This 137-nucleotide RNA sequence from Castor canadensis belongs to the Rfam family "Small nucleolar RNA SNORA43". NCBI's taxonomy places the organism under Eukaryota, Craniata, Eutheria, Castoridae, Castor. Rfam's curators write: ACA43 is a member of the H/ACA class of snoRNA that guide the sites of modification of uridines to pseudouridines.

[Rfam]
RNA sequence: GCAGGCCUGGACCUCCCAACACCACAGGUGUGGCCACUCUACUGCACCUGUAACAUCAGGGCAAAGAGCAAGUGGCAUUUCCACUCUGGGUGUUCAGAAGCCAGUGAGCGCUAAGAAUGGUUUAUAGCGUGACAUUU
Number, nucleotide and partner (000 for none) at each position: 001g000002c000003a000004g062005g000006c060007c059008u058009g057010g056011a000012c000013c000014u000015c000016c000017c000018a000019a000020c000021a000022c000023c000024a051025c050026a049027g048028g000029u000030g000031u000032g000033g000034c000035c000036a000037c000038u000039c000040u000041a000042c000043u000044g000045c000046a000047c000048c027049u026050g025051u024052a000053a000054c000055a000056u010057c009058a008059g007060g006061g000062c004063a000064a000065a000066g000067a000068g000069c000070a000071a000072g000073u000074g000075g128076c127077a000078u000079u000080u000081c120082c119083a118084c000085u000086c115087u114088g000089g000090g000091u110092g109093u108094u107095c106096a105097g000098a000099a000100g000101c000102c000103a000104g000105u096106g095107a094108g093109c092110g091111c000112u000113a000114a087115g086116a000117a000118u083119g082120g081121u000122u000123u000124a000125u000126a000127g076128c075129g000130u000131g000132a000133c000134a000135u000136u000137u000